[Rfam]
RNA: mir-184 microRNA precursor family
RNA sequence: UCGACCACGUCUCCUUAUCACUUUUCCAGCCCAGCUUUCCUUUUAGUACCUGUUGGACGGAGAACUGAUAAGGGCAUGUGCCCGA
Numbered sequence: 001u002c003g004a005c006c007a008c009g010u011c012u013c014c015u016u017a018u019c020a021c022u023u024u025u026c027c028a029g030c031c032c033a034g035c036u037u038u039c040c041u042u043u044u045a046g047u048a049c050c051u052g053u054u055g056g057a058c059g060g061a062g063a064a065c066u067g068a069u070a071a072g073g074g075c076a077u078g079u080g081c082c083c084g085a
Base pairs, nucleotide, nucleotide: 012074013073014072015071016070017069018068019067020066022064023063024062025061026060027059030056031055